[Rfam]
RNA sequence: UAACCCAUGCUGGAAGGCAUGGCUGAACCGUCAGGAGUCAGCAGAGGGCAUAGUACCUAGGAGGUCAUGAACUUCGAGGGAAGGCC
Numbered sequence: 001u002a003a004c005c006c007a008u009g010c011u012g013g014a015a016g017g018c019a020u021g022g023c024u025g026a027a028c029c030g031u032c033a034g035g036a037g038u039c040a041g042c043a044g045a046g047g048g049c050a051u052a053g054u055a056c057c058u059a060g061g062a063g064g065u066c067a068u069g070a071a072c073u074u075c076g077a078g079g080g081a082a083g084g085c086c
Base pairs, nucleotide, nucleotide: 001025002024005022006021007020008019009018010017011016038045039044047086048085049084056079057078058077061074062073